[Rfam]
RNA sequence: CGAGUGGGCCGUGACUGGCGCGCUGAGAUGGGAUCAACCAUCGGGGAGCGGCUCAUGAACUGUGUGCCGUGCGCCUGGGCCGAACCG
Number, nucleotide and partner (000 for none) at each position: 001c000002g000003a000004g056005u055006g054007g053008g052009c051010c050011g049012u048013g000014a000015c045016u044017g075018g074019c073020g072021c071022g000023c000024u000025g000026a000027g000028a041029u040030g039031g038032g000033a000034u000035c000036a000037a000038c031039c030040a029041u028042c000043g000044g016045g015046g000047a000048g012049c011050g010051g009052c008053u007054c006055a005056u004057g000058a000059a000060c000061u000062g000063u000064g000065u000066g080067c079068c078069g000070u000071g021072c020073g019074c018075c017076u000077g000078g068079g067080c066081c000082g000083a000084a000085c000086c000087g000